[Rfam]
RNA sequence: UGAGGAGUGAAGAGAAGAAGCCUCUGGGGUCGAAACACGGACAGACGCCCAGAGGUUUUUUCAUG
Numbered sequence: 001u002g003a004g005g006a007g008u009g010a011a012g013a014g015a016a017g018a019a020g021c022c023u024c025u026g027g028g029g030u031c032g033a034a035a036c037a038c039g040g041a042c043a044g045a046c047g048c049c050c051a052g053a054g055g056u057u058u059u060u061u062c063a064u065g
Stems, first nucleotide, its partner, number of pairs: 014062005021055002026050003029046003
Shown here is a 65-nucleotide sequence from Synechococcus sp. JA-3-3Ab, a member of the family "Cyano-1 RNA". NCBI's taxonomy places the organism under Bacteria, Cyanobacteriota, Cyanophyceae, Synechococcaceae, Synechococcus. The family's consensus secondary structure is taken from published work.